The family of this 76-nucleotide sequence from Anabarilius grahami is "mir-16 microRNA precursor family". Rfam 15.1 lists 4,705 matches to the family in 758 species. A reference for the family is Partin et al. (2020), "Cryo-EM Structures of Human Drosha and DGCR8 in Complex with Primary MicroRNA", Mol Cell. Clan: mir-15 clan. It scores 52 bits against the family's covariance model.
[Rfam]
RNA sequence: AAUGUACUAUAGCAGCACAUAAAUACUGGAGGUGAAUGUGGUGUUAUCCAGUAUUACUGUUCUGCUGUAGUACGAC
Numbered sequence: 001a002a003u004g005u006a007c008u009a010u011a012g013c014a015g016c017a018c019a020u021a022a023a024u025a026c027u028g029g030a031g032g033u034g035a036a037u038g039u040g041g042u043g044u045u046a047u048c049c050a051g052u053a054u055u056a057c058u059g060u061u062c063u064g065c066u067g068u069a070g071u072a073c074g075a076c
Base pairs, nucleotide, nucleotide: 003074005072006071007070010069011066012065013064014063015062017060018059020056022055023054024053025052026051027050028049029048